RNA sequence: UGCUCCGGUGACACGGGCGGCAAUUUCCCAAGGAACACCCGGGUGAAAGAACCCCGCCAAGCCCCACCCCUCCCGCCCACGGAGCAAACUCACUCAGGAGGGUGAACAUCGCCAACUUGGCUGGAUUUGGGGCUGGUUGUCUGCCCUACGCUCGGCGCAACACCACCGCAGACAUGAGUCGGCCCUCGCCGGGAGUAGCGUUCCCAAUGCGAGGGCCUGACCACCGAGGAAGGCUCCAACUUCCCG
Number, nucleotide and partner (000 for none) at each position: 001u000002g000003c000004u000005c000006c000007g225008g224009u223010g222011a000012c000013a000014c000015g000016g077017g076018c075019g074020g000021c000022a000023a000024u000025u000026u000027c000028c000029c000030a000031a000032g000033g000034a000035a000036c000037a000038c000039c000040c000041g000042g000043g000044u000045g000046a000047a000048a000049g000050a000051a000052c000053c000054c000055c000056g000057c000058c000059a000060a000061g000062c000063c000064c000065c000066a000067c000068c000069c000070c000071u000072c000073c000074c019075g018076c017077c016078c000079a000080c000081g000082g000083a000084g000085c000086a000087a000088a000089c000090u105091c104092a103093c102094u101095c100096a000097g000098g000099a000100g095101g094102g093103u092104g091105a090106a000107c000108a000109u000110c000111g000112c000113c000114a000115a000116c000117u000118u000119g000120g156121c155122u154123g153124g152125a000126u000127u000128u000129g000130g000131g000132g000133c000134u000135g000136g000137u000138u000139g000140u000141c000142u000143g000144c000145c000146c000147u000148a000149c000150g000151c000152u124153c123154g122155g121156c120157g000158c000159a000160a000161c000162a000163c000164c000165a000166c000167c000168g000169c000170a000171g000172a000173c000174a000175u000176g000177a000178g000179u000180c000181g217182g216183c215184c214185c213186u000187c211188g210189c209190c000191g205192g204193g203194a202195g000196u000197a000198g000199c000200g000201u000202u194203c193204c192205c191206a000207a000208u000209g189210c188211g187212a000213g185214g184215g183216c182217c181218u000219g000220a000221c000222c010223a009224c008225c007226g000227a000228g244229g243230a242231a241232g240233g000234c000235u000236c000237c000238a000239a000240c232241u231242u230243c229244c228245c000246g000